[Rfam]
RNA sequence: GGUCAGUGAUGAGAUCUGACAUUGAUGUCUGAAUUUAAACUUGAUGUGUUACCAUUUAGCUCUAGAAUUACUCUGAGACCCA
Numbered sequence: 001g002g003u004c005a006g007u008g009a010u011g012a013g014a015u016c017u018g019a020c021a022u023u024g025a026u027g028u029c030u031g032a033a034u035u036u037a038a039a040c041u042u043g044a045u046g047u048g049u050u051a052c053c054a055u056u057u058a059g060c061u062c063u064a065g066a067a068u069u070a071c072u073c074u075g076a077g078a079c080c081c082a
Base pairs, nucleotide, nucleotide: 001080002079003078004077